The family of this 105-nucleotide RNA sequence from Brumicola nitratireducens is "Alpha operon ribosome binding site". It is annotated as a cis-regulatory element. Pairs were carried over by alignment from the consensus structure, which is taken from published work. Taxonomically the source falls in Brumicola nitratireducens (Bacteria, Pseudomonadota, Alteromonadales, Alteromonadaceae). It scores 88 bits against the family's covariance model. Rfam describes the family as follows. The bacterial alpha operon ribosome binding site is surrounded by this complex pseudoknotted structure. Translation of the mRNA produces 4 ribosomal protein products, one of which (S4) acts as a translational repressor by binding to the nested pseudoknot region. The mechanism of repression is thought to involve a conformational switch in the pseudoknot region and ribosome entrapment. For this family Rfam cites "Translational repression of the Escherichia coli alpha operon mRNA: importance of an mRNA conformational switch and a ternary entrapment complex" (Schlax et al., J Biol Chem, 2001).
RNA sequence: CAAUUUUGUUACUGGGUAAGUAUCCUAUCGGGCUUUUUAGGCUAGUAACACUAAAUAUAAGGAGUGCUGUUAAUGGCCCGUAUCGCUGGCAUUAACAUUCCUGAU
Numbered sequence: 001c002a003a004u005u006u007u008g009u010u011a012c013u014g015g016g017u018a019a020g021u022a023u024c025c026u027a028u029c030g031g032g033c034u035u036u037u038u039a040g041g042c043u044a045g046u047a048a049c050a051c052u053a054a055a056u057a058u059a060a061g062g063a064g065u066g067c068u069g070u071u072a073a074u075g076g077c078c079c080g081u082a083u084c085g086c087u088g089g090c091a092u093u094a095a096c097a098u099u100c101c102u103g104a105u
Base pairs, nucleotide, nucleotide: 004053007050008049009048010047011046012045013044024089025088029080030079031078032077037104038103039102